[Rfam]
RNA sequence: UAGCUCAUAGGUGAUAAGGCUCACCGUUGAACUGCCCGCGGGCUGAUGGCCUCUACAGAAGU
Numbered sequence: 001u002a003g004c005u006c007a008u009a010g011g012u013g014a015u016a017a018g019g020c021u022c023a024c025c026g027u028u029g030a031a032c033u034g035c036c037c038g039c040g041g042g043c044u045g046a047u048g049g050c051c052u053c054u055a056c057a058g059a060a061g062u
Stems, first nucleotide, its partner, number of pairs: 010025004017052005034043003
Notes: The family of this 62-nucleotide RNA from Chloroflexus aggregans is "Fluoride riboswitch aptamer (crcB RNA motif)". Gene Ontology terms of the family: response to fluoride and positive regulation of gene expression.